RNA sequence: AAAAACAAAGAAGCGCCAGAUCCCUAGUGGAUGACGAGGAAGACAGUUAUCGAAAGUUCGGCGGGAGCUGUCUGGGUUCACAGCCCUAGUAUUAGACAAAACAUUUGAGCAAUCAGAUGGACAGAGAAGAUACAGUGGCCUCAU
Numbered sequence: 001a002a003a004a005a006c007a008a009a010g011a012a013g014c015g016c017c018a019g020a021u022c023c024c025u026a027g028u029g030g031a032u033g034a035c036g037a038g039g040a041a042g043a044c045a046g047u048u049a050u051c052g053a054a055a056g057u058u059c060g061g062c063g064g065g066a067g068c069u070g071u072c073u074g075g076g077u078u079c080a081c082a083g084c085c086c087u088a089g090u091a092u093u094a095g096a097c098a099a100a101a102c103a104u105u106u107g108a109g110c111a112a113u114c115a116g117a118u119g120g121a122c123a124g125a126g127a128a129g130a131u132a133c134a135g136u137g138g139c140c141u142c143a144u
Base pairs, nucleotide, nucleotide: 020032021031022030023029041073042072043071044070045069050061051060052059053058074086075085076084077083078082089133090132091131092130093129102119103118104117105116106115107114108113
RNA: glmS glucosamine-6-phosphate activated ribozyme aptamer